[Rfam]
RNA sequence: UAAGAGCGGAAUCACAUGAUCCAGACUACUCGUCUCCUCAGCCUCCUCCUUCUCGCAUCCAGCAUGCGCGGUGAGCCUGUGGGCGGUAAUCAAAACUGAUUCCAACCAAACACAAGAAAGCCCGCGCAAAUGCGCGGGCUUUUUU
Number, nucleotide and partner (000 for none) at each position: 001u000002a000003a000004g106005a000006g000007c000008g103009g102010a101011a000012u099013c098014a097015c000016a000017u094018g000019a000020u000021c000022c000023a000024g000025a000026c086027u085028a000029c083030u082031c081032g080033u079034c000035u000036c000037c000038u000039c000040a000041g000042c000043c000044u000045c000046c000047u000048c000049c071050u070051u000052c000053u000054c068055g067056c066057a065058u000059c000060c000061a000062g000063c000064a000065u057066g056067c055068g054069c000070g050071g049072u000073g000074a000075g000076c000077c000078u000079g033080u032081g031082g030083g029084c000085g027086g026087u000088a000089a000090u000091c000092a000093a000094a017095a000096c000097u014098g013099a012100u000101u010102c009103c008104a000105a000106c004107c000108a000109a000110a000111c000112a000113c000114a000115a000116g000117a142118a141119a140120g139121c138122c137123c136124g135125c134126g133127c132128a000129a000130a000131u000132g127133c126134g125135c124136g123137g122138g121139c120140u119141u118142u117143u000144u000145u000